[Rfam]
RNA: Vertebrate telomerase RNA
RNA sequence: UCGCGUGGCAGGUGGGGAGGCCCCGGUGUUACUAACCCUAAUGGCUGCUGCCGCGCUCCCCGCGCCCGGCCGCUGUUUUACUCGCUGACUUUCAGCGGACGAGGGGAGCAGCCCGGGGGAGGGAGGGUGGGGAGGGAAGGGGGUCCGCUCUCAAAAAAAAACGUCAGCGAGGGUGCUCCUCACCCCGGCCCGCCCUGGGGUCCCUGUGUGUCCCCCCGCAGCCGGGGGCUCGCCGCGGAGGCUCCCGCCGCCCCACCGUCCGGAGGCCGCGGUCGGCCGGCUCCCGCCACUGCCGCCGCGAAGAGUUCGGCUCUGUCAGCCUCGGCGGCGGCCGGGAGCGAAGGGACGCGCCCCCGCGCCGGGGGACCCCAGCAGAGCAAAACGGGAGCGGCGCCCCCGGGCCAACCGCCGCGCUUCCCUCAGCCGUGGGGCGCGCGGCCGGCGCCGCUCCGACACGC
Numbered sequence: 001u002c003g004c005g006u007g008g009c010a011g012g013u014g015g016g017g018a019g020g021c022c023c024c025g026g027u028g029u030u031a032c033u034a035a036c037c038c039u040a041a042u043g044g045c046u047g048c049u050g051c052c053g054c055g056c057u058c059c060c061c062g063c064g065c066c067c068g069g070c071c072g073c074u075g076u077u078u079u080a081c082u083c084g085c086u087g088a089c090u091u092u093c094a095g096c097g098g099a100c101g102a103g104g105g106g107a108g109c110a111g112c113c114c115g116g117g118g119g120a121g122g123g124a125g126g127g128u129g130g131g132g133a134g135g136g137a138a139g140g141g142g143g144u145c146c147g148c149u150c151u152c153a154a155a156a157a158a159a160a161a162c163g164u165c166a167g168c169g170a171g172g173g174u175g176c177u178c179c180u181c182a183c184c185c186c187g188g189c190c191c192g193c194c195c196u197g198g199g200g201u202c203c204c205u206g207u208g209u210g211u212c213c214c215c216c217c218g219c220a221g222c223c224g225g226g227g228g229c230u231c232g233c234c235g236c237g238g239a240g241g242c243u244c245c246c247g248c249c250g251c252c253c254c255a256c257c258g259u260c261c262g263g264a265g266g267c268c269g270c271g272g273u274c275g276g277c278c279g280g281c282u283c284c285c286g287c288c289a290c291u292g293c294c295g296c297c298g299c300g301a302a303g304a305g306u307u308c309g310g311c312u313c314u315g316u317c318a319g320c321c322u323c324g325g326c327g328g329c330g331g332c333c334g335g336g337a338g339c340g341a342a343g344g345g346a347c348g349c350g351c352c353c354c355c356g357c358g359c360c361g362g363g364g365g366a367c368c369c370c371a372g373c374a375g376a377g378c379a380a381a382a383c384g385g386g387a388g389c390g391g392c393g394c395c396c397c398c399g400g401g402c403c404a405a406c407c408g409c410c411g412c413g414c415u416u417c418c419c420u421c422a423g424c425c426g427u428g429g430g431g432c433g434c435g436c437g438g439c440c441g442g443c444g445c446c447g448c449u450c451c452g453a454c455a456c457g458c
Base pairs, nucleotide, nucleotide: 004192005191007190008189009188011186012183013182014181015180016179017178019176022173023172055109056108057107058106059105067101068100070098071097072096073095074094075093084168085167086166087165088164089163090161091160092159195372196371197370198369199368200367201366224355225354226353227352228351229350231348232347241339242338243337244336245335246334247333250329251328252327254325268300269299270298271297272296274295275294276293277292279288280287281286302314303313304312305311386450387449388448389447390446391445392444393443394442395441409438410437411436412435413434416431417430418429419428